[Rfam]
RNA sequence: UUCAACUUAAUUGAAUACCUUCAUAUAUACUCGAUAAUACGGUUCGAGAGUCUCUACCGGAGCACCUGAAAUGCUCUGACUAUGAAGGCAGAAGUCAAGCGC
Numbered sequence: 001u002u003c004a005a006c007u008u009a010a011u012u013g014a015a016u017a018c019c020u021u022c023a024u025a026u027a028u029a030c031u032c033g034a035u036a037a038u039a040c041g042g043u044u045c046g047a048g049a050g051u052c053u054c055u056a057c058c059g060g061a062g063c064a065c066c067u068g069a070a071a072u073g074c075u076c077u078g079a080c081u082a083u084g085a086a087g088g089c090a091g092a093a094g095u096c097a098a099g100c101g102c
Stems, first nucleotide, its partner, number of pairs: 018088008030048005058078007
Dot-bracket structure: .................((((((((....(((((.........))))).........(((((((.......)))))))..))))))))..............
The family of this 102-nucleotide RNA from Pontibacillus yanchengensis is "Purine riboswitch aptamer".
Riboswitches are metabolite binding domains within certain messenger RNAs that serve as precision sensors for their corresponding targets. Allosteric rearrangement of mRNA structure is mediated by ligand binding, and this results in modulation of gene expression. A class of riboswitches that selectively recognises guanine and becomes saturated at concentrations as low as 5 nM. In Bacillus subtilis, this mRNA motif is located on at least five separate transcriptional units that together encode 17 genes that are mostly involved in purine transport and purine nucleotide biosynthesis.